The record is a 54-nucleotide RNA sequence from Nocardioides sp. dk884, which matches "L17-Actino-Proteobacteria ribosomal protein leader" in Rfam. On this family, see Eckert and Weinberg, BMC Microbiol 2020: "Discovery of 20 novel ribosomal leader candidates in bacteria and archaea". NCBI's taxonomy places the organism under Bacteria, Bacillati, Propionibacteriales, Nocardioidaceae, Nocardioides.
Nucleotides: 054
Stems, first nucleotide, its partner, number of pairs: 002021008026054002029052007
Number, partner (000 for none) and nucleotide at each position: 001000a002021c003020c004019g005018g006017c007016g008015g009014c010000a011000c012000c013000u014009g015008c016007u017006g018005c019004c020003g021002g022000c023000c024000u025000a026054c027053u028000a029052c030051c031050c032049c033048g034047g035046u036000a037000c038000c039000u040000a041000g042000c043000a044000c045000g046035g047034c048033c049032g050031g051030g052029g053027a054026g